[Rfam]
RNA sequence: CUGACGACACACGACUGGCGCGGGUGGGUCACCACCGGGGAGUGAGAGUUCGUGGGUAUCGCCCGCCUGGGUGCCCACC
Numbered sequence: 001c002u003g004a005c006g007a008c009a010c011a012c013g014a015c016u017g018g019c020g021c022g023g024g025u026g027g028g029u030c031a032c033c034a035c036c037g038g039g040g041a042g043u044g045a046g047a048g049u050u051c052g053u054g055g056g057u058a059u060c061g062c063c064c065g066c067c068u069g070g071g072u073g074c075c076c077a078c079c
Stems, first nucleotide, its partner, number of pairs: 003051002008046001010044003015039002017067004024035004056074005
ZMP/ZTP riboswitch aptamer (pfl RNA motif): a 79-nucleotide sequence from Ornithinimicrobium pratense. It scores 47 bits against the family's covariance model. Pairs were carried over by alignment from the consensus structure, which is taken from published work.